This 34-nucleotide sequence from Bergeyella zoohelcum belongs to the Rfam family "DUF805b RNA". The source organism's lineage runs through Bacteria, Pseudomonadati, Weeksellaceae, Bergeyella and Bergeyella zoohelcum. The sequence is in the family's curated seed alignment.
RNA sequence: AUGGCGGAAUCCCGAAAAGCCAAAAGAGUAGGGA
Numbered sequence: 001a002u003g004g005c006g007g008a009a010u011c012c013c014g015a016a017a018a019g020c021c022a023a024a025a026g027a028g029u030a031g032g033g034a
Base pairs, nucleotide, nucleotide: 003021004020005019011033012032013031